[Rfam]
RNA sequence: CAUAAUCCUAUUUACUAUGCACAAGUAAAGACCGAUUAUGAAUCCACGUGGUAGAUGCAGUUGUAGGUUCCAACUGGUGCACAUCUUUUAGAGACAGUAACCAAGCUCGAAGUAAGCAGAGCGAAUACAGGAGCUAUACCUCGAUAGGCUUAAUGAGGUGCUUAACAGUCUGACACUAACUGAACAAUAAGUGUUG
Numbered sequence: 001c002a003u004a005a006u007c008c009u010a011u012u013u014a015c016u017a018u019g020c021a022c023a024a025g026u027a028a029a030g031a032c033c034g035a036u037u038a039u040g041a042a043u044c045c046a047c048g049u050g051g052u053a054g055a056u057g058c059a060g061u062u063g064u065a066g067g068u069u070c071c072a073a074c075u076g077g078u079g080c081a082c083a084u085c086u087u088u089u090a091g092a093g094a095c096a097g098u099a100a101c102c103a104a105g106c107u108c109g110a111a112g113u114a115a116g117c118a119g120a121g122c123g124a125a126u127a128c129a130g131g132a133g134c135u136a137u138a139c140c141u142c143g144a145u146a147g148g149c150u151u152a153a154u155g156a157g158g159u160g161c162u163u164a165a166c167a168g169u170c171u172g173a174c175a176c177u178a179a180c181u182g183a184a185c186a187a188u189a190a191g192u193g194u195u196g
Stems, first nucleotide, its partner, number of pairs: 001040007011029005053086004058076006105122004113164005138159005171196007
RAGATH-7 RNA: a 196-nucleotide sequence. Rfam's curators put it in the seed alignment.